Annotation
A member of the RNA family "RT-3 RNA", 148 nucleotides long. Rfam classes the family as a small RNA. The family's consensus secondary structure is taken from published work.
[Rfam]
RNA sequence: AAUACGCGGAAAACGAUGGGGACGAGUCCCCAAUGUGGUGCCGAGGGUGGCAAGCCACAGCAAACCUACAAUGAGUAGAAAGCUGAAAAAUCACGUGUCGGGCAAUAGGGUUUGGUAGGCUGGCAACAGUUCGAAGAAGUCUGGCCCG
Number, nucleotide and partner (000 for none) at each position: 001a000002a000003u044004a000005c000006g041007c040008g039009g000010a000011a000012a000013a036014c035015g034016a000017u000018g031019g030020g029021g028022a027023c000024g000025a000026g000027u022028c021029c020030c019031c018032a000033a000034u015035g014036u013037g000038g000039u008040g007041c006042c000043g000044a003045g000046g056047g055048u000049g000050g000051c000052a000053a000054g000055c047056c046057a000058c085059a084060g083061c082062a000063a000064a000065c000066c000067u077068a076069c075070a000071a000072u000073g000074a000075g069076u068077a067078g000079a000080a000081a000082g061083c060084u059085g058086a000087a000088a000089a000090a000091u000092c000093a000094c000095g000096u000097g000098u000099c148100g147101g146102g145103c144104a000105a000106u000107a000108g141109g140110g000111u138112u137113u136114g000115g000116u000117a000118g131119g130120c129121u128122g127123g000124c000125a000126a000127c122128a121129g120130u119131u118132c000133g000134a000135a000136g113137a112138a111139g000140u109141c108142u000143g000144g103145c102146c101147c100148g099